The record is a 146-nucleotide RNA sequence from Myotis lucifugus, which matches "Small nucleolar RNA SNORA48" in Rfam. The snoRNA ACA 48 has been identified to guide pseudouridylation of the residue U3797 in the 28S rRNA subunit. Lineage of the source: Eukaryota > Deuterostomia > Euteleostomi > Sarcopterygii > Myotis. On this family, see Ofengand and Bakin, J Mol Biol 1997: "Mapping to nucleotide resolution of pseudouridine residues in large subunit ribosomal RNAs from representative eukaryotes, prokaryotes, archaebacteria, mitochondria and chloroplasts". The family's consensus secondary structure was predicted with RNAalifold. By type it is an H/ACA-box small nucleolar RNA. Clan: SNORA48 clan. It scores 55 bits against the family's covariance model.

RNA sequence: UACCCCCUGGCAAUGGGCAAGGUGAUUCCUGAUUGGUGGUGUUGCUCUUAUGUCAGUGAGGGGUGAACCAGAUGUACAGUCCCUAAUUCAGCCUAGCCUGAUGCCUGGGUUGGUGGCCAGAGCUGUUUCAUGCCUGGGGCACAUAA
Numbered sequence: 001u002a003c004c005c006c007c008u009g010g011c012a013a014u015g016g017g018c019a020a021g022g023u024g025a026u027u028c029c030u031g032a033u034u035g036g037u038g039g040u041g042u043u044g045c046u047c048u049u050a051u052g053u054c055a056g057u058g059a060g061g062g063g064u065g066a067a068c069c070a071g072a073u074g075u076a077c078a079g080u081c082c083c084u085a086a087u088u089c090a091g092c093c094u095a096g097c098c099u100g101a102u103g104c105c106u107g108g109g110u111u112g113g114u115g116g117c118c119a120g121a122g123c124u125g126u127u128u129c130a131u132g133c134c135u136g137g138g139g140c141a142c143a144u145a146a
Stems, first nucleotide, its partner, number of pairs: 001065004006061003014055003020049003024043003028039002087139003100134001102132001106130003111125002114122001